This 121-nucleotide RNA from Thermaerobacter marianensis belongs to the Rfam family "TPP riboswitch aptamer (THI element)".
Pairs were carried over by alignment from the consensus structure, which is taken from published work.
RNA sequence: AGUCGGUACCGGGGGUGCCCGCGAGGGCUGAGAAGCGCGGCAGCCGCAACGGCUGCAGGGGCGCUACCCUUCGGACUCGAUCCGGGUCAUACCGGCGUGAGGAAGGUACCGCAUGGCCGCC
Numbered sequence: 001a002g003u004c005g006g007u008a009c010c011g012g013g014g015g016u017g018c019c020c021g022c023g024a025g026g027g028c029u030g031a032g033a034a035g036c037g038c039g040g041c042a043g044c045c046g047c048a049a050c051g052g053c054u055g056c057a058g059g060g061g062c063g064c065u066a067c068c069c070u071u072c073g074g075a076c077u078c079g080a081u082c083c084g085g086g087u088c089a090u091a092c093c094g095g096c097g098u099g100a101g102g103a104a105g106g107u108a109c110c111g112c113a114u115g116g117c118c119g120c121c
Stems, first nucleotide, its partner, number of pairs: 006109005011070004017028004035064004076101004082095004